Record summary:
A member of the RNA family "Group II catalytic intron D1-D4-6" from Ruminococcus sp. YE71, 235 nucleotides long.

RNA sequence: AAACUCCCGACCCGAUAAACCAUAGCAAGGAGUCGGUAUCCAGCCUUGGACACAGAGCCGUGAGGUGAGUGUUAAGCGUAGGCAGGAAAGAUUUAGAGCCAUAAGGCGAAAGCUUGAAUCGAUUUAGCGUCGUAAGCACCAACAAAGCGGUGGGCGAUACCCUCAUAUUGGUCGCAGCCAGCAAGAACCGUUCGUUAAUGCGAGAACGGGGAGACACCGCCGGCGUUUGAAAGAA
Numbered sequence: 001a002a003a004c005u006c007c008c009g010a011c012c013c014g015a016u017a018a019a020c021c022a023u024a025g026c027a028a029g030g031a032g033u034c035g036g037u038a039u040c041c042a043g044c045c046u047u048g049g050a051c052a053c054a055g056a057g058c059c060g061u062g063a064g065g066u067g068a069g070u071g072u073u074a075a076g077c078g079u080a081g082g083c084a085g086g087a088a089a090g091a092u093u094u095a096g097a098g099c100c101a102u103a104a105g106g107c108g109a110a111a112g113c114u115u116g117a118a119u120c121g122a123u124u125u126a127g128c129g130u131c132g133u134a135a136g137c138a139c140c141a142a143c144a145a146a147g148c149g150g151u152g153g154g155c156g157a158u159a160c161c162c163u164c165a166u167a168u169u170g171g172u173c174g175c176a177g178c179c180a181g182c183a184a185g186a187a188c189c190g191u192u193c194g195u196u197a198a199u200g201c202g203a204g205a206a207c208g209g210g211g212a213g214a215c216a217c218c219g220c221c222g223g224c225g226u227u228u229g230a231a232a233g234a235a
Stems, first nucleotide, its partner, number of pairs: 012036005020030002023203001025201002039087003043083004047078002049073005057066003124229001127226006147220006153179003159172003188209006

Notes
Group II introns are found in rRNA, tRNA and mRNA of organelles in fungi, plants and protists, and also in mRNA in bacteria.